[Rfam]
RNA: tRNA
RNA sequence: GCCAACUUGCCCGAGUGGUUUAAGGGGGUGGACUUAAGAUCCACUGGGCGAAAGUCCGCGUGAGUUCGAACCUCACAGUUGGCA
Numbered sequence: 001g002c003c004a005a006c007u008u009g010c011c012c013g014a015g016u017g018g019u020u021u022a023a024g025g026g027g028g029u030g031g032a033c034u035u036a037a038g039a040u041c042c043a044c045u046g047g048g049c050g051a052a053a054g055u056c057c058g059c060g061u062g063a064g065u066u067c068g069a070a071c072c073u074c075a076c077a078g079u080u081g082g083c084a
Stems, first nucleotide, its partner, number of pairs: 001083007010026003028044005060076005